[Rfam]
RNA sequence: AAAUGGCGAUCAGGGUAAAACCUAACCAGUAGCCCUGUACCGAGUCUUGCGUGGUGCAUGGUAACAUGUAUGGCGAAGCGUAGACAGGAAGGAAGUAGGCCGGAAUAAAGUGAAGAGGAUAAUUAGCCCCGAAAUCGAACGUGGUUGAAGUAGUCGAUCUUAUCUCUCUAUGGAGAAGACGGAAACAGCACUACCGAUAGAGGUGAGGGAGUGACUGUUGCUUCCGGGGUUCGUACC
Numbered sequence: 001a002a003a004u005g006g007c008g009a010u011c012a013g014g015g016u017a018a019a020a021c022c023u024a025a026c027c028a029g030u031a032g033c034c035c036u037g038u039a040c041c042g043a044g045u046c047u048u049g050c051g052u053g054g055u056g057c058a059u060g061g062u063a064a065c066a067u068g069u070a071u072g073g074c075g076a077a078g079c080g081u082a083g084a085c086a087g088g089a090a091g092g093a094a095g096u097a098g099g100c101c102g103g104a105a106u107a108a109a110g111u112g113a114a115g116a117g118g119a120u121a122a123u124u125a126g127c128c129c130c131g132a133a134a135u136c137g138a139a140c141g142u143g144g145u146u147g148a149a150g151u152a153g154u155c156g157a158u159c160u161u162a163u164c165u166c167u168c169u170a171u172g173g174a175g176a177a178g179a180c181g182g183a184a185a186c187a188g189c190a191c192u193a194c195c196g197a198u199a200g201a202g203g204u205g206a207g208g209g210a211g212u213g214a215c216u217g218u219u220g221c222u223u224c225c226g227g228g229g230u231u232c233g234u235a236c237c
Base pairs, nucleotide, nucleotide: 011037012036013035014034015033020030021029023206025204026203038090040088041087044085045084046083047082048080049079050075051074052073054071055070056069057068058067059066060065123233126230127229128228129227130226131225147224148223149222150221151220152219153180154179155178158174159173160172185218186217187216188215189213190212191211192210194208195207

The family of this 237-nucleotide sequence from Polycladospora coralii is "Group II catalytic intron D1-D4-6". The source organism's lineage runs through Bacteria, Bacilli, Caryophanales, Thermoactinomycetaceae and Polycladospora. Group II introns are found in rRNA, tRNA and mRNA of organelles in fungi, plants and protists, and also in mRNA in bacteria. For this family Rfam cites "The ins and outs of group II introns" (Bonen and Vogel, Trends Genet, 2001). The match comes from Rfam's covariance-model search (125 bits). The family has 174 seed sequences and 1,617 matches in Rfam 15.1.